[Rfam]
RNA sequence: AAUCUCCUAUCUUGGCGCUUCCCGUGAUUAAUUUGGCAGUGUAUGUUAUAGGAGAAAAAGUAUCGCCUUUAGGCUUUUUCGGGUCUCCUUCGGUGUUUGUCUAGUAGUUCGACAAAUGUCAUCCUCUGGAUUCGAGAUAAUU
Numbered sequence: 001a002a003u004c005u006c007c008u009a010u011c012u013u014g015g016c017g018c019u020u021c022c023c024g025u026g027a028u029u030a031a032u033u034u035g036g037c038a039g040u041g042u043a044u045g046u047u048a049u050a051g052g053a054g055a056a057a058a059a060g061u062a063u064c065g066c067c068u069u070u071a072g073g074c075u076u077u078u079u080c081g082g083g084u085c086u087c088c089u090u091c092g093g094u095g096u097u098u099g100u101c102u103a104g105u106a107g108u109u110c111g112a113c114a115a116a117u118g119u120c121a122u123c124c125u126c127u128g129g130a131u132u133c134g135a136g137a138u139a140a141u142u
Stems, first nucleotide, its partner, number of pairs: 003055008015042004021036002024033001065074003078136009092120002096116006

A member of the RNA family "Nematode snoRNA ceN88" from Caenorhabditis angaria, 142 nucleotides long. Gene Ontology terms of the family: RNA processing and nucleolus. A search with the family's covariance model found it, with a score of 136 bits. Lineage of the source: Eukaryota > Eumetazoa > Bilateria > Rhabditina > Caenorhabditis. It is annotated as an H/ACA-box small nucleolar RNA. The literature on the family includes a 2007 paper in BMC Mol Biol by Jia et al., "Systematic identification of non-coding RNA 2,2,7-trimethylguanosine cap structures in Caenorhabditis elegans".